This 193-nucleotide sequence from a Deltaproteobacteria bacterium belongs to the Rfam family "Group II catalytic intron D1-D4-3". The family has 406 seed sequences and 4,274 matches in Rfam 15.1. The base pairs follow the family's consensus structure. For this family Rfam cites "Control of branch-site choice by a group II intron" (Chu et al., EMBO J, 2001).
RNA sequence: GUCACCGUGAGGUGGGGUCUGAAGGAAGCCGGAGUGCAAAGCUAUGAGCCGACCUGUCUGCGUGCACCGCACAGGCAGGCGAACAGAAAUAGCAUACAAGGCCCGGUUUCCGGAUAAGUCAGCACAACAUGACGAAGUCCUGGGUUUAAGGAGAUAGGGUAAAUGCUGCGGUUGUGUAGCAAAGGUUCACGUU
Numbered sequence: 001g002u003c004a005c006c007g008u009g010a011g012g013u014g015g016g017g018u019c020u021g022a023a024g025g026a027a028g029c030c031g032g033a034g035u036g037c038a039a040a041g042c043u044a045u046g047a048g049c050c051g052a053c054c055u056g057u058c059u060g061c062g063u064g065c066a067c068c069g070c071a072c073a074g075g076c077a078g079g080c081g082a083a084c085a086g087a088a089a090u091a092g093c094a095u096a097c098a099a100g101g102c103c104c105g106g107u108u109u110c111c112g113g114a115u116a117a118g119u120c121a122g123c124a125c126a127a128c129a130u131g132a133c134g135a136a137g138u139c140c141u142g143g144g145u146u147u148a149a150g151g152a153g154a155u156a157g158g159g160u161a162a163a164u165g166c167u168g169c170g171g172u173u174g175u176g177u178a179g180c181a182a183a184g185g186u187u188c189a190c191g192u193u
Base pairs, nucleotide, nucleotide: 002015003014004013005012006011028193030191031190036186037185041180042179043178044177045176046175047173048172049171050170051169090168091167092166093165094164095163101160102159103158106155107154108153109152110151111150112140113139114138115137118133119132120131121130